[Rfam]
RNA: Guanidine-I riboswitch aptamer
RNA sequence: GUGAGGCGCGUCUAGGGUUCCGUCGCAUCCGCGGGUCUGGUCCGAGAGACGCAGACGACCGGCAUCGGCGCGGGUCGUUCCACGGCGGGGGAAAAGCCCGGGAGAC
Numbered sequence: 001g002u003g004a005g006g007c008g009c010g011u012c013u014a015g016g017g018u019u020c021c022g023u024c025g026c027a028u029c030c031g032c033g034g035g036u037c038u039g040g041u042c043c044g045a046g047a048g049a050c051g052c053a054g055a056c057g058a059c060c061g062g063c064a065u066c067g068g069c070g071c072g073g074g075u076c077g078u079u080c081c082a083c084g085g086c087g088g089g090g091g092a093a094a095a096g097c098c099c100g101g102g103a104g105a106c
Stems, first nucleotide, its partner, number of pairs: 008052005015043002020040002022037001023034004054079007081101001083104001087099003